[Rfam]
RNA sequence: UCCGCUAACUAAUGGGCUAUUGAACGAAUCUGUUUAUCAGAAUCGCCGAACUAAAACUGCGUAAGUAGCGGAGUACUUAAAGAAACGUUGGCGUCAUACAACGUGACGAAAGUACUGCAAAGUACAUAAGGUUAAAAAUUUAAGGACAAGAGACUGUUAGUGAUGACGCACUAACAGCUUUUU
Numbered sequence: 001u002c003c004g005c006u007a008a009c010u011a012a013u014g015g016g017c018u019a020u021u022g023a024a025c026g027a028a029u030c031u032g033u034u035u036a037u038c039a040g041a042a043u044c045g046c047c048g049a050a051c052u053a054a055a056a057c058u059g060c061g062u063a064a065g066u067a068g069c070g071g072a073g074u075a076c077u078u079a080a081a082g083a084a085a086c087g088u089u090g091g092c093g094u095c096a097u098a099c100a101a102c103g104u105g106a107c108g109a110a111a112g113u114a115c116u117g118c119a120a121a122g123u124a125c126a127u128a129a130g131g132u133u134a135a136a137a138a139u140u141u142a143a144g145g146a147c148a149a150g151a152g153a154c155u156g157u158u159a160g161u162g163a164u165g166a167c168g169c170a171c172u173a174a175c176a177g178c179u180u181u182u183u
Stems, first nucleotide, its partner, number of pairs: 001072007044061003048057001051144002054141002073125006085104006092168006105115001106113002150181003154177009
RNA: FuFi-1 RNA